[Rfam]
RNA sequence: AAAUUGGUGUAGCCUUACCGUAGUAGGCGCUAAA
Numbered sequence: 001a002a003a004u005u006g007g008u009g010u011a012g013c014c015u016u017a018c019c020g021u022a023g024u025a026g027g028c029g030c031u032a033a034a
Base pairs, nucleotide, nucleotide: 006019007018008017012028013027014026015025
Dot-bracket structure: .....[[[...((((.]]].....))))......

Background: This 34-nucleotide sequence from Bacillus thuringiensis belongs to the Rfam family "ToxI antitoxin". NCBI's taxonomy places the organism under Bacteria, Bacillota, Bacilli, Caryophanales, Bacillus thuringiensis. Pairs were carried over by alignment from the consensus structure, which is taken from published work. Rfam classes the family as an antitoxin RNA.